Eukaryotic small subunit ribosomal RNA: a 541-nucleotide part of an RNA from Endocarpon pusillum.
RNA sequence: AAGUUGUUGCAGUUAAAAAGCUCGUAGUUGAACCUUGGGCCUGGCUGAUCUGUCUUCCUAAACGUUGUACGGAUUCGGUCGGGCCUUUCCUUCUGGGGAAUCCUAUGUCCUUUGUUGGGCGUAGUGGGGAACCAGGACUUUUACCUUGAAAAAAUUAGAGUGUUCAAAGCAGGCCUUUGCUCGAAUACAUUAGCAUGGAAUAAUGGAAUAGGACAGCAGUUCUAUUUUGUUGGUUUCUAGGACCGCUGUAAUGAUUAAUAGGGAUAGUCGGGGGCGUCAGUAUUCAAUUGUCAGAGGUGAAAUUCUUGGAUUUAUUGAAGACUAACUAUUGCGAAAGCAUUCGCCAAGGAUGUUUUCAUUAAUCAGUGAACGAAAGUUAGGGGAUCGAAGACGAUCAGAUACCGUCGUAGUCUUAACCAUAAACUAUGCCGACUAGGGAUCGGACGGUGUUUUUUUAUAUGACCCGUUCGGCACCUUACGAGAAAUCAAAGUUUUUGGGCUCUGGGGGGAGUAUGGUCGCAAGGCUGAAACUUAAAGAAAU
Numbered sequence: 001a002a003g004u005u006g007u008u009g010c011a012g013u014u015a016a017a018a019a020g021c022u023c024g025u026a027g028u029u030g031a032a033c034c035u036u037g038g039g040c041c042u043g044g045c046u047g048a049u050c051u052g053u054c055u056u057c058c059u060a061a062a063c064g065u066u067g068u069a070c071g072g073a074u075u076c077g078g079u080c081g082g083g084c085c086u087u088u089c090c091u092u093c094u095g096g097g098g099a100a101u102c103c104u105a106u107g108u109c110c111u112u113u114g115u116u117g118g119g120c121g122u123a124g125u126g127g128g129g130a131a132c133c134a135g136g137a138c139u140u141u142u143a144c145c146u147u148g149a150a151a152a153a154a155u156u157a158g159a160g161u162g163u164u165c166a167a168a169g170c171a172g173g174c175c176u177u178u179g180c181u182c183g184a185a186u187a188c189a190u191u192a193g194c195a196u197g198g199a200a201u202a203a204u205g206g207a208a209u210a211g212g213a214c215a216g217c218a219g220u221u222c223u224a225u226u227u228u229g230u231u232g233g234u235u236u237c238u239a240g241g242a243c244c245g246c247u248g249u250a251a252u253g254a255u256u257a258a259u260a261g262g263g264a265u266a267g268u269c270g271g272g273g274g275c276g277u278c279a280g281u282a283u284u285c286a287a288u289u290g291u292c293a294g295a296g297g298u299g300a301a302a303u304u305c306u307u308g309g310a311u312u313u314a315u316u317g318a319a320g321a322c323u324a325a326c327u328a329u330u331g332c333g334a335a336a337g338c339a340u341u342c343g344c345c346a347a348g349g350a351u352g353u354u355u356u357c358a359u360u361a362a363u364c365a366g367u368g369a370a371c372g373a374a375a376g377u378u379a380g381g382g383g384a385u386c387g388a389a390g391a392c393g394a395u396c397a398g399a400u401a402c403c404g405u406c407g408u409a410g411u412c413u414u415a416a417c418c419a420u421a422a423a424c425u426a427u428g429c430c431g432a433c434u435a436g437g438g439a440u441c442g443g444a445c446g447g448u449g450u451u452u453u454u455u456u457a458u459a460u461g462a463c464c465c466g467u468u469c470g471g472c473a474c475c476u477u478a479c480g481a482g483a484a485a486u487c488a489a490a491g492u493u494u495u496u497g498g499g500c501u502c503u504g505g506g507g508g509g510a511g512u513a514u515g516g517u518c519g520c521a522a523g524g525c526u527g528a529a530a531c532u533u534a535a536a537g538a539a540a541u
Stems, first nucleotide, its partner, number of pairs: 010504003018501001020371001022369002027363003261357004265352002268349002273345004279323002283319006290312001294305003331338002376417006386410001390406004428500003431493003435476003440471008449463003480487002506533003515526004
Pairs were carried over by alignment from the consensus structure, which is taken from published work.
The literature on the family includes a 2002 paper in BMC Bioinformatics by Cannone et al., "The comparative RNA web (CRW) site: an online database of comparative sequence and structure information for ribosomal, intron, and other RNAs".
NCBI's taxonomy places the organism under Eukaryota, Dikarya, Ascomycota, Endocarpon, Endocarpon pusillum.